RNA sequence: ACAUCAGGGAAAGGAAUCUGCUGUCGGUCUCACUCCAGAGUUCAUAAUGUAGUUGGUGGGCACAGAAUGCCGCCUCUGCCUGUG
Dot-bracket structure: (((.(((((...(.(.((((.((((.(..(((.(.................).)))).)))))))).).)...)))))..))).
This 84-nucleotide sequence from Neogale vison belongs to the Rfam family "mir-541 microRNA precursor family". A search with the family's covariance model found it, with a score of 68 bits. The literature on the family includes a 2005 paper in BMC Bioinformatics by Sewer et al., "Identification of clustered microRNAs using an ab initio prediction method".